The family of this 47-nucleotide sequence from Nannocystis exedens is "Guanidine-II riboswitch aptamer (mini-ykkC)". Rfam's curators write: Simpler in structure and has fewer highly conserved nucleotide positions than the ykkC-yxkD leader. For this family Rfam cites "The Structure of the Guanidine-II Riboswitch" (Huang et al., Cell Chem Biol, 2017). Pairs were carried over by alignment from the consensus structure, which is taken from published work.
RNA sequence: CCGCCGGGCCGACCCGGCCGUCGACGCGAUCGCCGAGGACGACCUCG
Numbered sequence: 001c002c003g004c005c006g007g008g009c010c011g012a013c014c015c016g017g018c019c020g021u022c023g024a025c026g027c028g029a030u031c032g033c034c035g036a037g038g039a040c041g042a043c044c045u046c047g
Base pairs, nucleotide, nucleotide: 001020003018004017005016006015007014008013034047035046036045037044038043